[Rfam]
RNA sequence: UGUCCUUGGCCUGGAUAGAGUGACAUUUGGCUGGUGCUCACAUCAUAACAGCCAGGGACAAAACAACCCUUCAUUUAUCCCAGUUUGACUUUUGGUUAGUGCCCAUACCUGGUUCAUGCCUUGGACACAUGA
Numbered sequence: 001u002g003u004c005c006u007u008g009g010c011c012u013g014g015a016u017a018g019a020g021u022g023a024c025a026u027u028u029g030g031c032u033g034g035u036g037c038u039c040a041c042a043u044c045a046u047a048a049c050a051g052c053c054a055g056g057g058a059c060a061a062a063a064c065a066a067c068c069c070u071u072c073a074u075u076u077a078u079c080c081c082a083g084u085u086u087g088a089c090u091u092u093u094g095g096u097u098a099g100u101g102c103c104c105a106u107a108c109c110u111g112g113u114u115c116a117u118g119c120c121u122u123g124g125a126c127a128c129a130u131g132a
Stems, first nucleotide, its partner, number of pairs: 001060008011051003018044002022038001024036004074125004087120001089118001093116003097112001099110001101108001
A member of the RNA family "Small nucleolar RNA SNORA48" from Tupaia belangeri, 132 nucleotides long. The match comes from Rfam's covariance-model search (100 bits). About the family: The snoRNA ACA 48 has been identified to guide pseudouridylation of the residue U3797 in the 28S rRNA subunit. Gene Ontology terms of the family: RNA processing and nucleolus. For this family Rfam cites "Mapping to nucleotide resolution of pseudouridine residues in large subunit ribosomal RNAs from representative eukaryotes, prokaryotes, archaebacteria, mitochondria and chloroplasts" (Ofengand and Bakin, J Mol Biol, 1997).